[Rfam]
RNA: 7SK RNA
Organism: Pomatorhinus ruficollis
Nucleotides: 316
Base pairs, nucleotide, nucleotide: 001099002098003097006092007091008090010088013084014083018081024078025077028074029073030072031071033069035064037060038059045057046056047055048054107161108160111156112155113130114129115128116127119125131152132151138148139147140146186256187255188254193249195247196246197245198244199243200242207238210235213233214232215231216230217229279316280315281314285307288302289301290300291299292298
Number, partner (000 for none) and nucleotide at each position: 001099g002098g003097a004000u005000a006092u007091g008090a009000a010088g011000u012000c013084a014083a015000c016000c017000u018081g019000g020000c021000u022000g023000c024078a025077a026000a027000a028074u029073c030072u031071g032000a033069u034000a035064u036000g037060c038059a039000u040000g041000g042000g043000u044000u045057g046056a047055u048054c049000u050000g051000a052000c053000c054048g055047a056046u057045c058000u059038u060037g061000c062000u063000a064035g065000c066000u067000u068000a069033g070000g071031c072030a073029g074028g075000g076000g077025u078024u079000u080000g081018c082000u083014u084013u085000c086000u087000u088010c089000c090008u091007c092006a093000g094000c095000a096000u097003u098002c099001c100000a101000u102000g103000u104000g105000u106000g107161u108160u109000c110000u111156u112155c113130c114129u115128g116127g117000u118000c119125c120000u121000g122000u123000g124000u125119g126000c127116u128115u129114g130113g131152u132151u133000a134000a135000u136000g137000a138148g139147g140146a141000c142000a143000g144000c145000c146140u147139c148138c149000c150000c151132a152131a153000c154000a155112g156111g157000c158000a159000u160108g161107g162000u163000u164000c165000a166000u167000u168000g169000g170000g171000c172000a173000a174000g175000g176000g177000u178000g179000u180000g181000u182000g183000g184000u185000a186256g187255c188254u189000g190000u191000g192000g193249u194000c195247c196246c197245c198244u199243g200242c201000u202000g203000g204000a205000a206000g207238c208000u209000c210235u211000a212000a213233g214232u215231a216230a217229g218000c219000u220000c221000a222000a223000g224000g225000u226000c227000c228000a229217u230216u231215u232214g233213u234000a235210g236000a237000u238207g239000a240000a241000u242200g243199u244198g245197g246196g247195g248000u249193a250000g251000u252000c253000a254188a255187g256186c257000a258000a259000c260000a261000a262000a263000u264000a265000c266000u267000g268000a269000a270000g271000a272000c273000a274000u275000a276000u277000c278000c279316a280315a281314a282000u283000g284000a285307g286000a287000a288302g289301c290300u291299g292298c293000a294000u295000g296000c297000a298292g299291c300290a301289g302288u303000u304000u305000g306000c307285c308000a309000g310000u311000g312000g313000c314281u315280u316279u